The record is a 156-nucleotide RNA sequence, which matches "Small nucleolar RNA SNORA12" in Rfam. Pairs were carried over by alignment from the consensus structure, which was predicted with RNAalifold. For this family Rfam cites "A novel experimental approach for systematic identification of box H/ACA snoRNAs from eukaryotes" (Gu et al., Nucleic Acids Res, 2005). About the family: U108 belongs to the H/ACA family of snoRNAs. The sequence is predicted to guide the pseudouridylation of the U372 residue in the 28S rRNA subunit. However it has not been reported as a pseudouridylation site. It is one of the family's seed sequences. Rfam links the family to the GO terms nucleolus and RNA processing. The family has 23 seed sequences and 571 matches in Rfam 15.1.

Nucleotides: 156
Stems, first nucleotide, its partner, number of pairs: 005062007022050003026046006075149006081090003106141005
Number, partner (000 for none) and nucleotide at each position: 001000u002000c003000u004000c005062g006061u007060g008059g009058u010057a011056g012000u013000u014000u015000u016000c017000u018000u019000u020000u021000u022050g023049g024048c025000a026046c027045a028044u029043u030042u031041g032000u033000u034000a035000a036000g037000u038000u039000u040000u041031c042030a043029a044028a045027u046026g047000g048024g049023c050022c051000u052000a053000a054000c055000a056011c057010u058009g059008c060007c061006a062005c063000a064000u065000g066000u067000a068000u069000u070000a071000u072000a073000c074000u075149g076148g077147a078146g079145u080144u081090g082089g083088c084000a085000a086000a087000g088083g089082c090081c091000u092000g093000u094000g095000a096000c097000a098000a099000u100000g101000a102000g103000a104000u105000a106141u107140c108139u109138c110137u111000c112000a113000a114000g115000c116000c117000u118000u119000u120000c121000a122000c123000g124000c125000c126000u127000u128000u129000c130000c131000u132000c133000u134000a135000u136000c137110a138109g139108a140107g141106a142000a143000u144080g145079g146078c147077u148076c149075c150000c151000a152000c153000a154000u155000g156000u